[Rfam]
RNA sequence: GAAGUGCACCAGGGGUGUCUGGAUCAGCCAGGAUGCUCUCUCUGGCUGAAACAGGCUGAGAAAGUCCCUUUGAACCUGAACAGGAUAAUACCUGCGUAGGGAGAGUGCCUUUUCCUUUCC
Numbered sequence: 001g002a003a004g005u006g007c008a009c010c011a012g013g014g015g016u017g018u019c020u021g022g023a024u025c026a027g028c029c030a031g032g033a034u035g036c037u038c039u040c041u042c043u044g045g046c047u048g049a050a051a052c053a054g055g056c057u058g059a060g061a062a063a064g065u066c067c068c069u070u071u072g073a074a075c076c077u078g079a080a081c082a083g084g085a086u087a088a089u090a091c092c093u094g095c096g097u098a099g100g101g102a103g104a105g106u107g108c109c110u111u112u113u114c115c116u117u118u119c120c
Stems, first nucleotide, its partner, number of pairs: 006108004011069004016063001017056005075100004081094004
Rfam assigns this 120-nucleotide sequence to the family "TPP riboswitch aptamer (THI element)". Rfam links the family to the GO term thiamine pyrophosphate binding. Pairs were carried over by alignment from the consensus structure, which is taken from published work. Vitamin B(1) in its active form thiamin pyrophosphate (TPP) is an essential coenzyme that is synthesised by coupling of pyrimidine and thiazole moieties in bacteria. It scores 69 bits against the family's covariance model.